[Rfam]
RNA sequence: UGGUAGAUGCACCCUGGUUAAGCUCUAGAUUUGACUCUAGAGCUUUUUUUU
Numbered sequence: 001u002g003g004u005a006g007a008u009g010c011a012c013c014c015u016g017g018u019u020a021a022g023c024u025c026u027a028g029a030u031u032u033g034a035c036u037c038u039a040g041a042g043c044u045u046u047u048u049u050u051u
Base pairs, nucleotide, nucleotide: 002013003012004011022043023042024041025040026039027038028037029036